Record summary:
Alphaproteobacteria transfer-messenger RNA: a 351-nucleotide sequence from Labrys okinawensis. Taxonomically the source falls in Labrys (Bacteria, Pseudomonadati, Alphaproteobacteria, Xanthobacteraceae). On this family, see Williams and Bartel, RNA 1996: "Phylogenetic analysis of tmRNA secondary structure". Rfam classes the family as a non-coding RNA gene. A search with the family's covariance model found it, with a score of 304 bits. The family's consensus secondary structure is taken from published work.

[Rfam]
RNA sequence: CCUCUUUUUUCUGCCGAACAGGCAGCCUAUAUUCACUUUGCCGGCUCGCGCCGGCUAUGGCGAUAAAUGGUCAUCGUAAUAAACCUAUCGGACCCGGGGGCAGUACCCGGCGCCUCCACCAGAGCCCGUCAGGGCGGGCUGCGGCGGGGGCGAAACAGGAUCGACGAGGGUGUAAAGGGUGUGCUUUCGCUCGGCAUGGUUCCGCCGAUAUCGGGCCGUUUCAAUAGUUGCCAACGACAACUAUGCUCCGGUUGCGGUUGCCGCGUAAGCGGUAACUAGACCGAAAUCAAGUCCUGACGGGUAGCACCGGCAGGCGGGGUCCGGAGGCACCUGGCAACAGAAGCCUCCACU
Numbered sequence: 001c002c003u004c005u006u007u008u009u010u011c012u013g014c015c016g017a018a019c020a021g022g023c024a025g026c027c028u029a030u031a032u033u034c035a036c037u038u039u040g041c042c043g044g045c046u047c048g049c050g051c052c053g054g055c056u057a058u059g060g061c062g063a064u065a066a067a068u069g070g071u072c073a074u075c076g077u078a079a080u081a082a083a084c085c086u087a088u089c090g091g092a093c094c095c096g097g098g099g100g101c102a103g104u105a106c107c108c109g110g111c112g113c114c115u116c117c118a119c120c121a122g123a124g125c126c127c128g129u130c131a132g133g134g135c136g137g138g139c140u141g142c143g144g145c146g147g148g149g150g151c152g153a154a155a156c157a158g159g160a161u162c163g164a165c166g167a168g169g170g171u172g173u174a175a176a177g178g179g180u181g182u183g184c185u186u187u188c189g190c191u192c193g194g195c196a197u198g199g200u201u202c203c204g205c206c207g208a209u210a211u212c213g214g215g216c217c218g219u220u221u222c223a224a225u226a227g228u229u230g231c232c233a234a235c236g237a238c239a240a241c242u243a244u245g246c247u248c249c250g251g252u253u254g255c256g257g258u259u260g261c262c263g264c265g266u267a268a269g270c271g272g273u274a275a276c277u278a279g280a281c282c283g284a285a286a287u288c289a290a291g292u293c294c295u296g297a298c299g300g301g302u303a304g305c306a307c308c309g310g311c312a313g314g315c316g317g318g319g320u321c322c323g324g325a326g327g328c329a330c331c332u333g334g335c336a337a338c339a340g341a342a343g344c345c346u347c348c349a350c351u
Stems, first nucleotide, its partner, number of pairs: 040055005059191005069184001072181004084170003088167003094110005111152007192207004197218003201215003317332004323348006